Shown here is a 68-nucleotide RNA sequence from Diceros bicornis, a member of the family "mir-290 microRNA precursor family". Pairs were carried over by alignment from the consensus structure, which was predicted with RNAalifold. Lineage of the source: Eukaryota > Teleostomi > Laurasiatheria > Perissodactyla > Diceros bicornis. The literature on the family includes a 2003 paper in Dev Cell by Houbaviy et al., "Embryonic stem cell-specific MicroRNAs". Rfam 15.1 lists 565 matches to the family in 128 species.
[Rfam]
RNA sequence: GUGGUACUCAAAUGUGGAAGCACUCUGCAAAGAUCUGGAUGGAAAGUGCUGCAAUAUUUGAGUGUCAC
Numbered sequence: 001g002u003g004g005u006a007c008u009c010a011a012a013u014g015u016g017g018a019a020g021c022a023c024u025c026u027g028c029a030a031a032g033a034u035c036u037g038g039a040u041g042g043a044a045a046g047u048g049c050u051g052c053a054a055u056a057u058u059u060g061a062g063u064g065u066c067a068c
Stems, first nucleotide, its partner, number of pairs: 004065009014055002017052001019050006026043001028041001